Shown here is an 82-nucleotide RNA from Actinoplanes aureus, a member of the family "Actinobacteria sRNA Ms_AS-4".

RNA sequence: UUUCGCGUCGGUGAAUCGGUGUGGGUCGUCGCCGAACUCGCCGAGGAUCCGCGCGCCGAGAAUCACUGCGAGCCCGGGCAGG
Numbered sequence: 001u002u003u004c005g006c007g008u009c010g011g012u013g014a015a016u017c018g019g020u021g022u023g024g025g026u027c028g029u030c031g032c033c034g035a036a037c038u039c040g041c042c043g044a045g046g047a048u049c050c051g052c053g054c055g056c057c058g059a060g061a062a063u064c065a066c067u068g069c070g071a072g073c074c075c076g077g078g079c080a081g082g
Stems, first nucleotide, its partner, number of pairs: 008044006018038003022034003055079003060075001063072001
It is annotated as a small RNA.